[Rfam]
RNA: Plastid-psbN 5UTR RNA
Organism: Synechococcus sp. PCC 6312
RNA sequence: AAACACCGCCAUCAACGGAGUCGUCCCCCAGCCAGGAGCAACUUUCCCAUAUUCAGAGUUA
Numbered sequence: 001a002a003a004c005a006c007c008g009c010c011a012u013c014a015a016c017g018g019a020g021u022c023g024u025c026c027c028c029c030a031g032c033c034a035g036g037a038g039c040a041a042c043u044u045u046c047c048c049a050u051a052u053u054c055a056g057a058g059u060u061a
Stems, first nucleotide, its partner, number of pairs: 017045005023039002026036002